[Rfam]
This 131-nucleotide RNA from Streptomyces xanthophaeus belongs to the Rfam family "FMN riboswitch aptamer (RFN element)". Lineage of the source: Bacteria > Actinomycetota > Kitasatosporales > Streptomycetaceae > Streptomyces. It scores 100 bits against the family's covariance model. The family's consensus secondary structure is taken from published work. The RFN element is a highly conserved domain that is found frequently in the 5'-untranslated regions of prokaryotic mRNAs that encode for flavin mononucleotide (FMN) biosynthesis and transport proteins. The family has 146 seed sequences and 6,230 matches in Rfam 15.1.

RNA sequence: CAGCGCACUCCGGGGUCGGUGUAAUUCCGAACCGGCGGUUAUAGUCCGCGACCCGUCCGCAGCCAGCGGCCGGUUGACCAGGUGAGAUUCCUGGACCGACGGUUAAAGUCCGGAUGGGAGGCAGUGCGCGG
Dot-bracket structure: ..((((((((......(((.......))).[[((((((.....[[))))...((.................))....(((((.......)))))]])).(((.....]]))).......)..)))))))..
Numbered sequence: 001c002a003g004c005g006c007a008c009u010c011c012g013g014g015g016u017c018g019g020u021g022u023a024a025u026u027c028c029g030a031a032c033c034g035g036c037g038g039u040u041a042u043a044g045u046c047c048g049c050g051a052c053c054c055g056u057c058c059g060c061a062g063c064c065a066g067c068g069g070c071c072g073g074u075u076g077a078c079c080a081g082g083u084g085a086g087a088u089u090c091c092u093g094g095a096c097c098g099a100c101g102g103u104u105a106a107a108g109u110c111c112g113g114a115u116g117g118g119a120g121g122c123a124g125u126g127c128g129c130g131g
Stems, first nucleotide, its partner, number of pairs: 003129007010120001017029003031109002033098002035049004044096002053073002078094005100112003